Shown here is a 77-nucleotide RNA sequence from Rhododendron simsii, a member of the family "Small nucleolar RNA R160".
The literature on the family includes a 2003 paper in Nucleic Acids Res by Chen et al., "The high diversity of snoRNAs in plants: identification and comparative study of 120 snoRNA genes from Oryza sativa".
RNA sequence: AGCCAAAUGAUGAAGUUUUAUUGAUCUGAACUCCAGUGUGGAAUAGUGUUAAUGGUCUUCAAAGUUCUCUGAUUGCU
Numbered sequence: 001a002g003c004c005a006a007a008u009g010a011u012g013a014a015g016u017u018u019u020a021u022u023g024a025u026c027u028g029a030a031c032u033c034c035a036g037u038g039u040g041g042a043a044u045a046g047u048g049u050u051a052a053u054g055g056u057c058u059u060c061a062a063a064g065u066u067c068u069c070u071g072a073u074u075g076c077u
Stems, first nucleotide, its partner, number of pairs: 001077003005073001